[Rfam]
RNA sequence: CAGAAAUGGGAGUUCCAUGCAGCCCAAACCAGCGGCUAUGAAUGAAAUAGUAGCUCUAUGUUUUGGAUUGAAGGGAGCUCCCAAUUCUU
Numbered sequence: 001c002a003g004a005a006a007u008g009g010g011a012g013u014u015c016c017a018u019g020c021a022g023c024c025c026a027a028a029c030c031a032g033c034g035g036c037u038a039u040g041a042a043u044g045a046a047a048u049a050g051u052a053g054c055u056c057u058a059u060g061u062u063u064u065g066g067a068u069u070g071a072a073g074g075g076a077g078c079u080c081c082c083a084a085u086u087c088u089u
Stems, first nucleotide, its partner, number of pairs: 007083010018072001021069002024066005

Rfam assigns this 89-nucleotide RNA from Malus baccata to the family "MIR319 microRNA precursor family".
The family's consensus secondary structure was predicted with RNAalifold.
Its family is annotated with miRNA-mediated post-transcriptional gene silencing and RISC complex in the Gene Ontology.
It scores 77 bits against the family's covariance model.